[Rfam]
Nucleotides: 134
Base pairs, nucleotide, nucleotide: 003059004058005057006056008054018042019041022037023036024035025034026033070127071126072125073124074123086112089109090108092106
Number, partner (000 for none) and nucleotide at each position: 001000u002000u003059g004058u005057a006056g007000c008054c009000u010000u011000c012000c013000a014000g015000c016000g017000u018042g019041c020000u021000u022037g023036g024035g025034u026033c027000u028000g029000g030000g031000g032000g033026g034025a035024c036023u037022c038000c039000c040000u041019g042018c043000c044000u045000u046000c047000c048000u049000g050000c051000a052000g053000u054008g055000c056006u057005u058004g059003c060000c061000a062000g063000a064000g065000u066000g067000u068000u069000c070127u071126g072125a073124a074123a075000u076000g077000g078000u079000u080000g081000g082000a083000g084000g085000g086112c087000u088000c089109g090108c091000c092106c093000c094000a095000u096000c097000c098000c099000u100000u101000c102000c103000u104000c105000a106092g107000a108090g109089c110000a111000u112086g113000g114000g115000c116000a117000u118000a119000g120000a121000c122000a123074u124073u125072u126071c127070a128000g129000a130000c131000a132000g133000u134000u